This 104-nucleotide RNA from Lathyrus palustris belongs to the Rfam family "Plastid-rps12 3UTR RNA". Rfam's curators put it in the seed alignment. From the family's description: Plastid rpl20 is a non-coding RNA (ncRNA) recognised in plastids. It was found in the three prime untranslated region (3UTR) of rps12 gene, its 3UTR location sugest a role in transcript maduration. The family's consensus secondary structure was predicted with LocARNA. Lineage of the source: Eukaryota > Viridiplantae > Streptophytina > Fabeae > Lathyrus.
[Rfam]
RNA sequence: UUUCAAUUGGUGCAAACCAAAUCACCUUAAUUUGCAAUUUAAGAUGCCCCAUAUUUUCCCAUUGGGAAUAAAAUAGUUACCCAUUAAGCGGGAAAAAUCCUAUU
Numbered sequence: 001u002u003u004c005a006a007u008u009g010g011u012g013c014a015a016a017c018c019a020a021a022u023c024a025c026c027u028u029a030a031u032u033u034g035c036a037a038u039u040u041a042a043g044a045u046g047c048c049c050c051a052u053a054u055u056u057u058c059c060c061a062u063u064g065g066g067a068a069u070a071a072a073a074u075a076g077u078u079a080c081c082c083a084u085u086a087a088g089c090g091g092g093a094a095a096a097a098u099c100c101u102a103u104u
Base pairs, nucleotide, nucleotide: 007021008020010018057093058092059091060090061084062083064081065080068078